Shown here is an 84-nucleotide RNA sequence from Arabidopsis lyrata, a member of the family "MIR851 microRNA precursor family". Rfam's curators put it in the seed alignment.

[Rfam]
RNA sequence: AGGGACUGUGGUCUUUGUUUGCGACCCAUACGUAAUCUUUUGUGAGAGACUACGUGUGGGUGGCAAACAAAGACGACAAUCCCU
Numbered sequence: 001a002g003g004g005a006c007u008g009u010g011g012u013c014u015u016u017g018u019u020u021g022c023g024a025c026c027c028a029u030a031c032g033u034a035a036u037c038u039u040u041u042g043u044g045a046g047a048g049a050c051u052a053c054g055u056g057u058g059g060g061u062g063g064c065a066a067a068c069a070a071a072g073a074c075g076a077c078a079a080u081c082c083c084u
Stems, first nucleotide, its partner, number of pairs: 001084005007078003011074004017068006024061011036049005